[Rfam]
RNA sequence: CUGUUGAUAGAUGAGGUUCCGCCAGCUGUAGUUGCGGAACCUUCACUCAAGGUGCAAAAAACAAAAGCUGUUCUGCAGCAGCGGCCAGACAACCGUAGAGAUGGAUCCACAGAUGAUUUGUUUGCAAUACAAGUCAUCUACUAAUUCUAUCUCACACUU
Number, nucleotide and partner (000 for none) at each position: 001c054002u000003g000004u000005u000006g048007a047008u000009a000010g000011a000012u000013g043014a042015g041016g040017u039018u038019c037020c036021g035022c034023c000024a032025g000026c000027u000028g000029u000030a000031g000032u024033u000034g022035c021036g020037g019038a018039a017040c016041c015042u014043u013044c000045a000046c000047u007048c006049a000050a000051g000052g000053u000054g001055c000056a000057a000058a000059a000060a000061a000062c000063a000064a000065a000066a000067g000068c000069u000070g000071u000072u000073c000074u000075g000076c000077a000078g000079c000080a000081g000082c000083g000084g000085c000086c000087a000088g000089a000090c000091a000092a000093c000094c000095g000096u000097a000098g153099a152100g151101a150102u149103g148104g147105a146106u000107c000108c000109a000110c000111a000112g000113a000114u000115g135116a134117u133118u132119u131120g130121u000122u000123u000124g000125c000126a000127a000128u000129a000130c120131a119132a118133g117134u116135c115136a000137u000138c000139u000140a000141c000142u000143a000144a000145u000146u105147c104148u103149a102150u101151c100152u099153c098154a000155c000156a000157c000158u000159u000

small nucleolar RNA snoR143: a 159-nucleotide RNA from Musa troglodytarum. By type it is an H/ACA-box small nucleolar RNA. On this family, see Chen and Wu, Nucleic Acids Res 2009: "Mining small RNA sequencing data: a new approach to identify small nucleolar RNAs in Arabidopsis". The match comes from Rfam's covariance-model search (88 bits). Rfam links the family to the GO terms RNA processing and nucleolus.